[Rfam]
The record is an 82-nucleotide RNA from Tetradesmus obliquus, which matches "Small nucleolar RNA Z159/U59" in Rfam. The match comes from Rfam's covariance-model search (40 bits). Rfam classes the family as a C/D-box small nucleolar RNA.

RNA sequence: GCGCCCGAAGAUGAUACCAACUGAUGCAUUUUGUCAGAACAACCUCUGUUGAUAAUCUUUUGGAGACCUGAACUGAGGGCUG
Number, nucleotide and partner (000 for none) at each position: 001g000002c000003g080004c079005c078006c077007g000008a000009a000010g000011a000012u000013g000014a000015u000016a000017c000018c000019a000020a000021c000022u000023g000024a000025u000026g000027c000028a000029u000030u000031u000032u000033g000034u000035c000036a000037g000038a000039a000040c000041a000042a000043c000044c000045u000046c000047u000048g000049u000050u000051g000052a000053u000054a000055a000056u000057c000058u000059u000060u000061u000062g000063g000064a000065g000066a000067c000068c000069u000070g000071a000072a000073c000074u000075g000076a000077g006078g005079g004080c003081u000082g000
The family is grouped with related families in Rfam's "SNORD59 clan".